[Rfam]
mir-3912 microRNA precursor family: a 91-nucleotide RNA sequence from Pongo pygmaeus. The base pairs follow the family's consensus structure, which was predicted with RNAalifold. The family has 2 seed sequences and 12 matches in Rfam 15.1. Rfam links the family to the GO terms RISC complex and miRNA-mediated post-transcriptional gene silencing.

RNA sequence: UGAACAGUUAAGUUAUAACAUGUCCAUAUUAUGCGUUAGUUGUGGACACAUACUAACGCAUAAUAUGGACAUGUUAUAAUUUAACUGUUCC
Numbered sequence: 001u002g003a004a005c006a007g008u009u010a011a012g013u014u015a016u017a018a019c020a021u022g023u024c025c026a027u028a029u030u031a032u033g034c035g036u037u038a039g040u041u042g043u044g045g046a047c048a049c050a051u052a053c054u055a056a057c058g059c060a061u062a063a064u065a066u067g068g069a070c071a072u073g074u075u076a077u078a079a080u081u082u083a084a085c086u087g088u089u090c091c
Base pairs, nucleotide, nucleotide: 002090003089004088005087006086007085008084009083010082011081012080013079014078015077016076017075018074019073020072021071022070023069024068025067026066027065028064029063030062031061032060033059034058035057036056037055038054039053040052042051043050044049